A member of the RNA family "Metazoan signal recognition particle RNA" from Aphanomyces euteiches, 289 nucleotides long. Rfam describes the family as follows. The signal recognition particle (SRP) is a universally conserved ribonucleoprotein. It is involved in the co-translational targeting of proteins to membranes. The eukaryotic SRP consists of a 300-nucleotide 7S RNA and six proteins: SRPs 72, 68, 54, 19, 14, and 9. Archaeal SRP consists of a 7S RNA and homologues of the eukaryotic SRP19 and SRP54 proteins. The match comes from Rfam's covariance-model search (142 bits).
RNA sequence: ACUGGGUUGAGUGGCGUCGACAUGUUACCGCAGGCUUCUGGCGGGGUAGAGUUUAAUGAGGGAGAGGUCACUAUUGUGAGGGAUCUAUACACGGCAUGUGGAUGGGUUGUCCGUUCCAAACCAGGAGUAGACAUCGUGGGACAAUCGGAAAUAUGUCCCACUAGGUCCGUAAAGAGAGGUGCACCGCCUCAGGCUGGUCAACAGAGCAGGGAAAAACCUCCGCUCUUGGUAGUGGAAGGAUCGCAACCCAGAAUGUCGAUGGUCCCAGCUGCUUUCGAAUUGGAUUCGU
Number, nucleotide and partner (000 for none) at each position: 001a047002c046003u045004g023005g000006g021007u020008u019009g018010a017011g000012u000013g000014g000015c000016g000017u010018c009019g008020a007021c006022a000023u004024g000025u000026u000027a000028c044029c043030g042031c000032a000033g000034g000035c000036u000037u000038c000039u000040g000041g000042c030043g029044g028045g003046g002047u001048a000049g287050a286051g285052u284053u283054u282055a281056a280057u279058g000059a000060g276061g275062g274063a273064g272065a000066g270067g269068u000069c000070a000071c000072u000073a000074u268075u267076g266077u000078g000079a000080g265081g264082g263083a000084u000085c262086u261087a260088u259089a000090c000091a000092c000093g257094g256095c255096a254097u253098g000099u251100g000101g000102a000103u250104g249105g248106g247107u246108u245109g244110u243111c239112c238113g000114u237115u236116c235117c234118a233119a000120a230121c229122c228123a227124g226125g225126a224127g223128u222129a000130g167131a166132c165133a000134u163135c000136g161137u160138g159139g158140g157141a156142c155143a154144a000145u000146c000147g000148g000149a000150a000151a000152u000153a000154u143155g142156u141157c140158c139159c138160a137161c136162u000163a134164g000165g132166u131167c130168c174169g000170u000171a000172a000173a000174g168175a000176g220177a219178g218179g217180u216181g000182c000183a000184c000185c000186g000187c211188c210189u209190c000191a000192g000193g000194c204195u203196g202197g000198u000199c000200a000201a000202c196203a195204g194205a000206g000207c000208a000209g189210g188211g187212a000213a000214a000215a000216a180217c179218c178219u177220c176221c000222g128223c127224u126225c125226u124227u123228g122229g121230u120231a000232g000233u118234g117235g116236a115237a114238g112239g111240a000241u000242c000243g110244c109245a108246a107247c106248c105249c104250a103251g099252a000253a097254u096255g095256u094257c093258g000259a088260u087261g086262g085263u082264c081265c080266c076267a075268g074269c067270u066271g000272c064273u063274u062275u061276c060277g000278a000279a057280u056281u055282g054283g053284a052285u051286u050287c049288g000289u000
About this RNA: The family has 91 seed sequences and 383,523 matches in Rfam 15.1. Lineage of the source: Eukaryota > Sar > Oomycota > Saprolegniomycetes > Aphanomyces. Gene Ontology terms of the family: signal recognition particle, endoplasmic reticulum targeting and SRP-dependent cotranslational protein targeting to membrane, signal sequence recognition.